[Rfam]
RNA sequence: UCGGUCUUUUAUAUUAGUUCCUUGCUUCCCCUGGAUGACCGAGCCAUUUGUGGAAGCUAAUAAUCCGUAAGGAGCAACCUAUG
Numbered sequence: 001u002c003g004g005u006c007u008u009u010u011a012u013a014u015u016a017g018u019u020c021c022u023u024g025c026u027u028c029c030c031c032u033g034g035a036u037g038a039c040c041g042a043g044c045c046a047u048u049u050g051u052g053g054a055a056g057c058u059a060a061u062a063a064u065c066c067g068u069a070a071g072g073a074g075c076a077a078c079c080u081a082u083g
Stems, first nucleotide, its partner, number of pairs: 017075007024057006032046003
About this RNA: The record is an 83-nucleotide RNA sequence from Vibrio gelatinilyticus, which matches "RpsF leader" in Rfam. About the family: Conserved and widely distributed to many bacterial species RNA structure. It precedes operon containing rpsF, which encodes ribosomal protein S6. The pairing is the family consensus, mapped onto this sequence. The match comes from Rfam's covariance-model search (39 bits). Rfam classes the family as a cis-regulatory leader. On this family, see Babina et al., RNA 2015: "An S6:S18 complex inhibits translation of E. coli rpsF". Gene Ontology terms of the family: negative regulation of translation and protein binding.